Annotation: This 371-nucleotide RNA from Spiroplasma syrphidicola belongs to the Rfam family "Bacterial RNase P class B". The source organism's lineage runs through Bacteria, Entomoplasmatales, Spiroplasmataceae, Spiroplasma and Spiroplasma syrphidicola. A search with the family's covariance model found it, with a score of 243 bits. About the family: Ribonuclease P (RNase P) is a ubiquitous endoribonuclease, found in archaea, bacteria and eukarya as well as chloroplasts and mitochondria. Its best characterised activity is the generation of mature 5'-ends of tRNAs by cleaving the 5'-leader elements of precursor-tRNAs. Cellular RNase Ps are ribonucleoproteins. RNA from bacterial RNase Ps retains its catalytic activity in the absence of the protein subunit, i.e. it is a ribozyme. Isolated eukaryotic and archaeal RNase P RNA has not been shown to retain its catalytic function, but is still essential for the catalytic activity of the holoenzyme. Although the archaeal and eukaryotic holoenzyme s have a much greater protein content than the bacterial ones, the RNA cores from all the three lineages are homologous -- helices corresponding to P1, P2, P3, P4, and P10/11 are common to all cellular RNase P RNAs. Yet, there is considerable sequence variation, particularly among the eukaryotic RNAs. Its Rfam clan is "RNaseP clan".
[Rfam]
RNA sequence: UGGCCGAACUAGUUGCUGCUAUAUCAAAUAGUAGAGGAAACUCCACGCUCGCACAAUCUGGGAUGAUUGUAGUGUUUGUGUUAAUCGAAAAAAUAAGAUUAAGCAUAAGAACUUUCUUAUGACGGCUGAAAAGAUUCCUAAGUUACAAUGUAAUAUGGAUAUUUUCUGUAAAAGUGCCACAGAAACGAGGAACUAAAGAAAUUUAGGGAGAUGGAACGGGUAAACCCCACAAGCGAGAAACCUAAAUAUUGGUAAGGGACUUUUGUAUUUUUAAUUCAGAAGAAAUACAAGAAUUAAAAGGAGACUUUUAAUAGAUAAAUAACUAGUGUUUUUAUUCGUAAGAAUAAAAAAACAGAACGUGGGUUAUGAAG
Dot-bracket structure: ...(..((((((((.((((((.......))))))....[[[.[[[[[(((((((((((......)))))).....(((((((((((..........))))))(((((((......)))))).)((.((.(.....(((...(((.......)))..))).....).)).....(((((..............(((((....)))))............)))..))))))))))))))...(((...........)))...(((((((..................)))))))((((((((....))))))))........))))))).(((((((((....))))))))).......]]]]]]]].)...)
Numbered sequence: 001u002g003g004c005c006g007a008a009c010u011a012g013u014u015g016c017u018g019c020u021a022u023a024u025c026a027a028a029u030a031g032u033a034g035a036g037g038a039a040a041c042u043c044c045a046c047g048c049u050c051g052c053a054c055a056a057u058c059u060g061g062g063a064u065g066a067u068u069g070u071a072g073u074g075u076u077u078g079u080g081u082u083a084a085u086c087g088a089a090a091a092a093a094u095a096a097g098a099u100u101a102a103g104c105a106u107a108a109g110a111a112c113u114u115u116c117u118u119a120u121g122a123c124g125g126c127u128g129a130a131a132a133g134a135u136u137c138c139u140a141a142g143u144u145a146c147a148a149u150g151u152a153a154u155a156u157g158g159a160u161a162u163u164u165u166c167u168g169u170a171a172a173a174g175u176g177c178c179a180c181a182g183a184a185a186c187g188a189g190g191a192a193c194u195a196a197a198g199a200a201a202u203u204u205a206g207g208g209a210g211a212u213g214g215a216a217c218g219g220g221u222a223a224a225c226c227c228c229a230c231a232a233g234c235g236a237g238a239a240a241c242c243u244a245a246a247u248a249u250u251g252g253u254a255a256g257g258g259a260c261u262u263u264u265g266u267a268u269u270u271u272u273a274a275u276u277c278a279g280a281a282g283a284a285a286u287a288c289a290a291g292a293a294u295u296a297a298a299a300g301g302a303g304a305c306u307u308u309u310a311a312u313a314g315a316u317a318a319a320u321a322a323c324u325a326g327u328g329u330u331u332u333u334a335u336u337c338g339u340a341a342g343a344a345u346a347a348a349a350a351a352a353c354a355g356a357a358c359g360u361g362g363g364u365u366a367u368g369a370a371g
Stems, first nucleotide, its partner, number of pairs: 004371001007367001008327007016034006039365003043362005048237005053070006076232005081102006103123001104121006124227002127168002130165001136159003142154003174225002176221003193206005241257003261292007293312008329350009